[Rfam]
RNA sequence: UAUAUGCUUGUCUCAAAGAUUAAGCCAUGCAUGUCUAAGUACAAACGAAAAUAAAGUGAAACCGCAAAAGGCUCAUUAUAUCAGUUAUGGUUUCUUAGAUCGUAUCCACAAUUACUUGGAUAACUGUGGUAAUUCUAGAGCUAAUACAUGCAAUUAAAGAGAAACCGGUAAAACGGGUUCUCUGCUUUUAUUAGAUUUAAACCAAUGAGGAGUGCUUCGGCGUUCUUACAUUAAAAAUGGUUGAACUCUGGAUAAUUUGUUGAUCGCAUGGUCUCGUACCGGCGACGGAUCUUUCAAAUGUCUGCCCUAUCAACUAUUGAAGGUAAUGUCUUGGAUUACCUUGGUUGCAACGGGUAACGGGGAAUCAGGGUUCGAUUCCGGAGAGGGAGCCUGAGAAACGGCUACCACAUCUAAGGAAGGCAGCAGGCGCGUAAAUUACCCACUCCCAGCACGGGGAGGUAGUGACGAAAAAUAACAAUACAAGACUCACAUCCGAGGCCUUGUAAUUGGAAUGAGUACACUUUAAAUCCUUUAACAAGGAUCAAUUGGAGGGCAAGUCUGGUGCCAGCAGCCGCGGUAAUUCCAGCUCCAAUAGCGUAU
Numbered sequence: 001u002a003u004a005u006g007c008u009u010g011u012c013u014c015a016a017a018g019a020u021u022a023a024g025c026c027a028u029g030c031a032u033g034u035c036u037a038a039g040u041a042c043a044a045a046c047g048a049a050a051a052u053a054a055a056g057u058g059a060a061a062c063c064g065c066a067a068a069a070g071g072c073u074c075a076u077u078a079u080a081u082c083a084g085u086u087a088u089g090g091u092u093u094c095u096u097a098g099a100u101c102g103u104a105u106c107c108a109c110a111a112u113u114a115c116u117u118g119g120a121u122a123a124c125u126g127u128g129g130u131a132a133u134u135c136u137a138g139a140g141c142u143a144a145u146a147c148a149u150g151c152a153a154u155u156a157a158a159g160a161g162a163a164a165c166c167g168g169u170a171a172a173a174c175g176g177g178u179u180c181u182c183u184g185c186u187u188u189u190a191u192u193a194g195a196u197u198u199a200a201a202c203c204a205a206u207g208a209g210g211a212g213u214g215c216u217u218c219g220g221c222g223u224u225c226u227u228a229c230a231u232u233a234a235a236a237a238u239g240g241u242u243g244a245a246c247u248c249u250g251g252a253u254a255a256u257u258u259g260u261u262g263a264u265c266g267c268a269u270g271g272u273c274u275c276g277u278a279c280c281g282g283c284g285a286c287g288g289a290u291c292u293u294u295c296a297a298a299u300g301u302c303u304g305c306c307c308u309a310u311c312a313a314c315u316a317u318u319g320a321a322g323g324u325a326a327u328g329u330c331u332u333g334g335a336u337u338a339c340c341u342u343g344g345u346u347g348c349a350a351c352g353g354g355u356a357a358c359g360g361g362g363a364a365u366c367a368g369g370g371u372u373c374g375a376u377u378c379c380g381g382a383g384a385g386g387g388a389g390c391c392u393g394a395g396a397a398a399c400g401g402c403u404a405c406c407a408c409a410u411c412u413a414a415g416g417a418a419g420g421c422a423g424c425a426g427g428c429g430c431g432u433a434a435a436u437u438a439c440c441c442a443c444u445c446c447c448a449g450c451a452c453g454g455g456g457a458g459g460u461a462g463u464g465a466c467g468a469a470a471a472a473u474a475a476c477a478a479u480a481c482a483a484g485a486c487u488c489a490c491a492u493c494c495g496a497g498g499c500c501u502u503g504u505a506a507u508u509g510g511a512a513u514g515a516g517u518a519c520a521c522u523u524u525a526a527a528u529c530c531u532u533u534a535a536c537a538a539g540g541a542u543c544a545a546u547u548g549g550a551g552g553g554c555a556a557g558u559c560u561g562g563u564g565c566c567a568g569c570a571g572c573c574g575c576g577g578u579a580a581u582u583c584c585a586g587c588u589c590c591a592a593u594a595g596c597g598u599a600u
Base pairs, nucleotide, nucleotide: 002600003599004598005597006596007595008594011470013468014467017463018430024428025427026426028425029424030423033065034064039062040061045057046056072383073382074381082304083303084302087299088298091297092296097292098291099290100289115150117148118147124140125139127137128136129135158183159182160181161180162179165176166175188255189254190253191252192251202243204241227233228232264285265284266283267282269281270280271279272278306354307353308352313345314344315343320342321341322340323339324338325337326336327335358380359379360378361377362373363372364371365370385406386405388403389402390401408419410417411416436461438460439459440458444456445455446454447453476509477508478507479505480504481503482502483501484500486497487496488495516536517535518533520532546592547591548590549589550588551587559586560585561584562583568575569574
RNA: Eukaryotic small subunit ribosomal RNA, nucleotides 25 to 624
Organism: Pseudolycoriella hygida